[Rfam]
RNA sequence: AGCCCCAGGGAACUGUUGCUGCUGAUAUAUUAUUCUCCCAAAAAAAAAAUCACCUAUAUCACAGUGGCUGUUCUUUUUGGCU
Numbered sequence: 001a002g003c004c005c006c007a008g009g010g011a012a013c014u015g016u017u018g019c020u021g022c023u024g025a026u027a028u029a030u031u032a033u034u035c036u037c038c039c040a041a042a043a044a045a046a047a048a049a050u051c052a053c054c055u056a057u058a059u060c061a062c063a064g065u066g067g068c069u070g071u072u073c074u075u076u077u078u079g080g081c082u
Stems, first nucleotide, its partner, number of pairs: 004079001007076007016067006023061002026058004
RNA: mir-6 microRNA precursor family
Organism: Drosophila ananassae